[Rfam]
RNA: Small nucleolar RNA SNORA9
Nucleotides: 133
Base pairs, nucleotide, nucleotide: 003059004058005057006056007055018043019042020041023038025036026035027034072125073124074123075122086112087111088110089109090108091107093105094104095103
Number, partner (000 for none) and nucleotide at each position: 001000g002000u003059g004058c005057a006056a007055g008000c009000a010000u011000u012000c013000c014000a015000g016000c017000a018043u019042g020041g021000a022000g023038g024000a025036g026035u027034c028000u029000g030000a031000g032000g033000u034027g035026g036025c037000c038023c039000c040000c041020u042019c043018a044000u045000u046000c047000c048000u049000a050000c051000a052000g053000c054000a055007c056006u057005u058004g059003c060000c061000a062000g063000a064000g065000c066000a067000g068000c069000c070000u071000g072125g073124g074123g075122a076000a077000g078000g079000u080000u081000u082000g083000a084000g085000g086112c087111c088110u089109u090108u091107c092000u093105c094104u095103g096000c097000u098000c099000a100000c101000c102000c103095u104094a105093g106000g107091g108090a109089g110088g111087g112086g113000u114000u115000a116000c117000a118000g119000a120000a121000a122075u123074u124073c125072u126000g127000g128000a129000c130000u131000u132000u133000c